[Rfam]
RNA sequence: GGAGAGUGUAGUGUGCCUGGUGGUCGCCGCGGUUUUCAAAACCGUUGACGGGUUGUUAUGAUCUGUGGUUGGUUCGAUUCCUUCCCUCUCC
Numbered sequence: 001g002g003a004g005a006g007u008g009u010a011g012u013g014u015g016c017c018u019g020g021u022g023g024u025c026g027c028c029g030c031g032g033u034u035u036u037c038a039a040a041a042c043c044g045u046u047g048a049c050g051g052g053u054u055g056u057u058a059u060g061a062u063c064u065g066u067g068g069u070u071g072g073u074u075c076g077a078u079u080c081c082u083u084c085c086c087u088c089u090c091c
Stems, first nucleotide, its partner, number of pairs: 001091006008084001011027003015024003029045005048066005071081002